Shown here is a 133-nucleotide RNA sequence from Maylandia zebra, a member of the family "Small nucleolar RNA SNORA47". Rfam links the family to the GO terms nucleolus and RNA processing. Pairs were carried over by alignment from the consensus structure, which was predicted with WAR. It is annotated as an H/ACA-box small nucleolar RNA. A search with the family's covariance model found it, with a score of 57 bits. Rfam 15.1 lists 733 matches to the family in 635 species. The literature on the family includes a 2001 paper in EMBO J by Huttenhofer et al., "RNomics: an experimental approach that identifies 201 candidates for novel, small, non-messenger RNAs in mouse". Lineage of the source: Eukaryota > Osteoglossocephalai > Percomorphaceae > Cichlomorphae > Maylandia zebra complex.
RNA sequence: UGGAGGACUGAGAAGGUUGGACAGCUUCUUCUGUGCUGUUAUAACUGGUUAUAGCCUCCAAGAGUAGUAAACAAACCACAUGAUUAAUUCAGCCUGUUCUACGCAGAGCUGAGAUGUGUUUGUGGAUCAUUUU
Numbered sequence: 001u002g003g004a005g006g007a008c009u010g011a012g013a014a015g016g017u018u019g020g021a022c023a024g025c026u027u028c029u030u031c032u033g034u035g036c037u038g039u040u041a042u043a044a045c046u047g048g049u050u051a052u053a054g055c056c057u058c059c060a061a062g063a064g065u066a067g068u069a070a071a072c073a074a075a076c077c078a079c080a081u082g083a084u085u086a087a088u089u090c091a092g093c094c095u096g097u098u099c100u101a102c103g104c105a106g107a108g109c110u111g112a113g114a115u116g117u118g119u120u121u122g123u124g125g126a127u128c129a130u131u132u133u
Base pairs, nucleotide, nucleotide: 002059003058004057005056006055015046016045017044018043020040021039022038023037024036025035078123079122082120083119087115090111091110092109093108095107097106098105